[Rfam]
RNA: Fluoride riboswitch aptamer (crcB RNA motif)
RNA sequence: CCAGAGGACGGCGAUGGAGUUCGCCAUAACCCCGCAGUGAAAGUAAUGCGGUGAUAACUCCUACUUUACU
Numbered sequence: 001c002c003a004g005a006g007g008a009c010g011g012c013g014a015u016g017g018a019g020u021u022c023g024c025c026a027u028a029a030c031c032c033c034g035c036a037g038u039g040a041a042a043g044u045a046a047u048g049c050g051g052u053g054a055u056a057a058c059u060c061c062u063a064c065u066u067u068a069c070u
Base pairs, nucleotide, nucleotide: 010025011024012023013022016061017060018059019058020057021056032051033050034049035048